[Rfam]
The record is a 94-nucleotide RNA from Branchiostoma belcheri, which matches "mir-2060 microRNA precursor family" in Rfam. The base pairs follow the family's consensus structure, which was predicted with RNAalifold. It scores 96 bits against the family's covariance model.
RNA sequence: GUAUGUUUGUGUGUGGAUGAUGUUCAGCACCAAGGACAGGUGUGUUUGCCUGUGUGUGGAUGGUGUUCAGCACCCAGGACAGGUGUGUUUGUGU
Numbered sequence: 001g002u003a004u005g006u007u008u009g010u011g012u013g014u015g016g017a018u019g020a021u022g023u024u025c026a027g028c029a030c031c032a033a034g035g036a037c038a039g040g041u042g043u044g045u046u047u048g049c050c051u052g053u054g055u056g057u058g059g060a061u062g063g064u065g066u067u068c069a070g071c072a073c074c075c076a077g078g079a080c081a082g083g084u085g086u087g088u089u090u091g092u093g094u
Stems, first nucleotide, its partner, number of pairs: 004085007019074001021072004026067007034055001036053007